Overview
Rfam assigns this 72-nucleotide RNA sequence to the family "DUF3800-VIII RNA". The family's RNA type in Rfam is small RNA. The family's consensus secondary structure is taken from published work.

RNA sequence: GUCGCCCUGCUCUUGUCGAAUGCCUACGCUCCGCGUGGGUCAGGCGACGGCCAGUAGGCAAGGCGGGGCGGC
Numbered sequence: 001g002u003c004g005c006c007c008u009g010c011u012c013u014u015g016u017c018g019a020a021u022g023c024c025u026a027c028g029c030u031c032c033g034c035g036u037g038g039g040u041c042a043g044g045c046g047a048c049g050g051c052c053a054g055u056a057g058g059c060a061a062g063g064c065g066g067g068g069c070g071g072c
Stems, first nucleotide, its partner, number of pairs: 001072010012062006022040008